[Rfam]
RNA: Group II catalytic intron D1-D4-3
RNA sequence: GUGAGGGUGACUGAUCGUGGGAAGGAAGCGUGGAGCAUAAAUCGCGAGCCGAUGAACAAGAACCGCAUAGAAGGCGUUGCCAAGUAGGGCGAGCGGGCCAGAAACCGCGAAGCUCUGGUGAUCAAGGCGAGGUGGCGUAGAUGCGGCGGUUGUGCGAUGAAGGAGUACGUUC
Numbered sequence: 001g002u003g004a005g006g007g008u009g010a011c012u013g014a015u016c017g018u019g020g021g022a023a024g025g026a027a028g029c030g031u032g033g034a035g036c037a038u039a040a041a042u043c044g045c046g047a048g049c050c051g052a053u054g055a056a057c058a059a060g061a062a063c064c065g066c067a068u069a070g071a072a073g074g075c076g077u078u079g080c081c082a083a084g085u086a087g088g089g090c091g092a093g094c095g096g097g098c099c100a101g102a103a104a105c106c107g108c109g110a111a112g113c114u115c116u117g118g119u120g121a122u123c124a125a126g127g128c129g130a131g132g133u134g135g136c137g138u139a140g141a142u143g144c145g146g147c148g149g150u151u152g153u154g155c156g157a158u159g160a161a162g163g164a165g166u167a168c169g170u171u172c
Base pairs, nucleotide, nucleotide: 001016005012006011028172030170031169032168036163041158042157043156044155045154046153047151048150049149050148051147063146064145065144066143067142068141074138075137076136078134079133080132081131084128087115088114089113090112093108094107095106096105